[Rfam]
RNA sequence: GGUUACAAUAAUUUGUUUGUUUAUCUUUAUGUCUUUUAAUAAAAAGACAUAAAGAUAAACAAACAAAUUAUUGUAACC
Numbered sequence: 001g002g003u004u005a006c007a008a009u010a011a012u013u014u015g016u017u018u019g020u021u022u023a024u025c026u027u028u029a030u031g032u033c034u035u036u037u038a039a040u041a042a043a044a045a046g047a048c049a050u051a052a053a054g055a056u057a058a059a060c061a062a063a064c065a066a067a068u069u070a071u072u073g074u075a076a077c078c
Stems, first nucleotide, its partner, number of pairs: 001078005007072020028051006
mir-9/mir-79 microRNA precursor family: a 78-nucleotide sequence from Populus tomentosa.
On this family, see Sempere et al., Dev Biol 2003: "Temporal regulation of microRNA expression in Drosophila melanogaster mediated by hormonal signals and broad-Complex gene activity".
A search with the family's covariance model found it, with a score of 60 bits.
The source organism's lineage runs through Eukaryota, Streptophytina, Mesangiospermae, eudicotyledons and Populus.
The family has 214 seed sequences and 5,647 matches in Rfam 15.1.